[Rfam]
Rfam assigns this 100-nucleotide sequence from Vibrio ezurae to the family "Purine riboswitch aptamer". Taxonomically the source falls in Vibrio ezurae (Bacteria, Pseudomonadati, Gammaproteobacteria, Vibrio).

RNA sequence: AAUCAGCCCGCAAUAGCGCUUCAUAUAAUCCCUCUGAUACGGUGUGGGAGUUUCUACCAAAGGCCAAUAACCUUUGAUUAUGAAGUCAUUGUCUUUAUUU
Dot-bracket structure: .................((((((((...((((.(.........).))))........((((((.......))))))..))))))))..............

Background: About the family: Riboswitches are metabolite binding domains within certain messenger RNAs that serve as precision sensors for their corresponding targets. The match comes from Rfam's covariance-model search (66 bits).